[Rfam]
This 596-nucleotide part of an RNA from Proscoloplos cygnochaetus belongs to the Rfam family "Eukaryotic small subunit ribosomal RNA". The family's consensus secondary structure is taken from published work. Rfam's curators put it in the seed alignment. Its family is annotated with structural constituent of ribosome and ribosome in the Gene Ontology.

RNA sequence: UGACUCGAAGAUUAAGCCAUGCACGUGUAAGUACAUGCCUAGACACGGUAAGACCGCGAAUGGCUCAUUAAAUCAGUCGUAGUUCCUUGGACAGAAUGAAAGUUACUUGGAUAACUGUGGCAAUUCUAGAGCUAAUACAUGCGUCUCAAGCUCUGACCUCUGCCUGCGCAAGUAGGUAGCGGGACGAGCGCACUUAUUAGACCAAGACCAACCGGGCCGAAAGGUCCCGUACAAUGUCUGGUGACUCUGGAUAACCAUAGCUGACCGCACGGCCUUCGAGCCGGCGGCGUAUCCUUUAAGUGUCUGCCCUAUCAACUGUCGAUGGUAAGUGAUCUGCUUACCAUGGUGUUGACGGGUAACGGGGAAUCAGGGUUCGAUUCCGGAGAGGGAGCAUGAGAAACGGCUACCACAUCCAAGGAAGGCAGCAGGCGCGCAAAUUACCCACUCCUGGCACAGGGAGGUAGUGAAGAGCAAUAACGGCCGGGGACUCCAUUGCGGAGGCCUCGGGAUCGGAAUGAGCGAGACUCAAACACUCUCGCGAGUAUCUAUUGGAGGGCAAGUCUGGUGCCAGCAGCCGCGGUAAUUCCAGCUCCAAU
Numbered sequence: 001u002g003a004c005u006c007g008a009a010g011a012u013u014a015a016g017c018c019a020u021g022c023a024c025g026u027g028u029a030a031g032u033a034c035a036u037g038c039c040u041a042g043a044c045a046c047g048g049u050a051a052g053a054c055c056g057c058g059a060a061u062g063g064c065u066c067a068u069u070a071a072a073u074c075a076g077u078c079g080u081a082g083u084u085c086c087u088u089g090g091a092c093a094g095a096a097u098g099a100a101a102g103u104u105a106c107u108u109g110g111a112u113a114a115c116u117g118u119g120g121c122a123a124u125u126c127u128a129g130a131g132c133u134a135a136u137a138c139a140u141g142c143g144u145c146u147c148a149a150g151c152u153c154u155g156a157c158c159u160c161u162g163c164c165u166g167c168g169c170a171a172g173u174a175g176g177u178a179g180c181g182g183g184a185c186g187a188g189c190g191c192a193c194u195u196a197u198u199a200g201a202c203c204a205a206g207a208c209c210a211a212c213c214g215g216g217c218c219g220a221a222a223g224g225u226c227c228c229g230u231a232c233a234a235u236g237u238c239u240g241g242u243g244a245c246u247c248u249g250g251a252u253a254a255c256c257a258u259a260g261c262u263g264a265c266c267g268c269a270c271g272g273c274c275u276u277c278g279a280g281c282c283g284g285c286g287g288c289g290u291a292u293c294c295u296u297u298a299a300g301u302g303u304c305u306g307c308c309c310u311a312u313c314a315a316c317u318g319u320c321g322a323u324g325g326u327a328a329g330u331g332a333u334c335u336g337c338u339u340a341c342c343a344u345g346g347u348g349u350u351g352a353c354g355g356g357u358a359a360c361g362g363g364g365a366a367u368c369a370g371g372g373u374u375c376g377a378u379u380c381c382g383g384a385g386a387g388g389g390a391g392c393a394u395g396a397g398a399a400a401c402g403g404c405u406a407c408c409a410c411a412u413c414c415a416a417g418g419a420a421g422g423c424a425g426c427a428g429g430c431g432c433g434c435a436a437a438u439u440a441c442c443c444a445c446u447c448c449u450g451g452c453a454c455a456g457g458g459a460g461g462u463a464g465u466g467a468a469g470a471g472c473a474a475u476a477a478c479g480g481c482c483g484g485g486g487a488c489u490c491c492a493u494u495g496c497g498g499a500g501g502c503c504u505c506g507g508g509a510u511c512g513g514a515a516u517g518a519g520c521g522a523g524a525c526u527c528a529a530a531c532a533c534u535c536u537c538g539c540g541a542g543u544a545u546c547u548a549u550u551g552g553a554g555g556g557c558a559a560g561u562c563u564g565g566u567g568c569c570a571g572c573a574g575c576c577g578c579g580g581u582a583a584u585u586c587c588a589g590c591u592c593c594a595a596u
Stems, first nucleotide, its partner, number of pairs: 004471003009465001010432001016430003020427003025057002031054002037049002064385003074306003079301002083299002089294003106141001108139002115131002118128003150189004157182002194254005207242004221230001223228001265287004270283004308356003315347003322344008360382004364375004387408002390405003410421001412419002438463001440462003446458005478512003481507006488500003519539002521536001523535002549595006562589004571578002